[Rfam]
RNA: gltS RNA
Organism: Vibrio ruber
RNA sequence: UAUCACCAAGGAUUGUUUUUCCCACCUGAUUUCCGGUGGGAGACGGAACGGAUUCAGACCGGCACCACCCGUCGGUUUUGAGACAAUAAAGAUAAAAAGGACCAG
Numbered sequence: 001u002a003u004c005a006c007c008a009a010g011g012a013u014u015g016u017u018u019u020u021c022c023c024a025c026c027u028g029a030u031u032u033c034c035g036g037u038g039g040g041a042g043a044c045g046g047a048a049c050g051g052a053u054u055c056a057g058a059c060c061g062g063c064a065c066c067a068c069c070c071g072u073c074g075g076u077u078u079u080g081a082g083a084c085a086a087u088a089a090a091g092a093u094a095a096a097a098a099g100g101a102c103c104a105g
Stems, first nucleotide, its partner, number of pairs: 020041007057077007